Rfam assigns this 135-nucleotide RNA from Paecilomyces variotii to the family "U4 spliceosomal RNA". For this family Rfam cites "The uRNA database" (Zwieb, Nucleic Acids Res, 1997). Clan: U4 clan. The base pairs follow the family's consensus structure, which is taken from published work.

[Rfam]
RNA sequence: AUCCUAGUGCACGGGCAUACGCGUAUCAGUGAGGAUUCGUCCGAGAUCGCGUUUUUGCUAGUUGAAAACUACCUAGUUUGACCACUCCAGUUGGUCUUCGGAUCGGCUGGGAAUUUUUGAAAAUAAAUUCAAUGA
Numbered sequence: 001a002u003c004c005u006a007g008u009g010c011a012c013g014g015g016c017a018u019a020c021g022c023g024u025a026u027c028a029g030u031g032a033g034g035a036u037u038c039g040u041c042c043g044a045g046a047u048c049g050c051g052u053u054u055u056u057g058c059u060a061g062u063u064g065a066a067a068a069c070u071a072c073c074u075a076g077u078u079u080g081a082c083c084a085c086u087c088c089a090g091u092u093g094g095u096c097u098u099c100g101g102a103u104c105g106g107c108u109g110g111g112a113a114u115u116u117u118u119g120a121a122a123a124u125a126a127a128u129u130c131a132a133u134g135a
Stems, first nucleotide, its partner, number of pairs: 019052005025047003033042003086111011124135001126133001